Source information:
The record is a 113-nucleotide RNA sequence from Rheinheimera sp. F8, which matches "Ribosomal S15 leader" in Rfam. It is annotated as a cis-regulatory leader. Pairs were carried over by alignment from the consensus structure, which is taken from published work. Rfam links the family to the GO term regulation of translation, ncRNA-mediated. Rfam describes the family as follows. The E. coli Ribosomal S15 gene 5' UTR can form two alternative structures. One that is a series of three hairpins, The other includes a pseudoknot.
RNA sequence: GUCGUAGGCUGGAUUAGUGCCUGGCUGCGAUCGUAUUUAAUAUCCUGGAGGAUACUAUGUCACUAACUACUGCUGAAAAAGCAAAAAUCCUGGCCGAUUUCGGUGCAAACGCU
Numbered sequence: 001g002u003c004g005u006a007g008g009c010u011g012g013a014u015u016a017g018u019g020c021c022u023g024g025c026u027g028c029g030a031u032c033g034u035a036u037u038u039a040a041u042a043u044c045c046u047g048g049a050g051g052a053u054a055c056u057a058u059g060u061c062a063c064u065a066a067c068u069a070c071u072g073c074u075g076a077a078a079a080a081g082c083a084a085a086a087a088u089c090c091u092g093g094c095c096g097a098u099u100u101c102g103g104u105g106c107a108a109a110c111g112c113u
Base pairs, nucleotide, nucleotide: 007026008025009024010023011022012021046065047064048063050061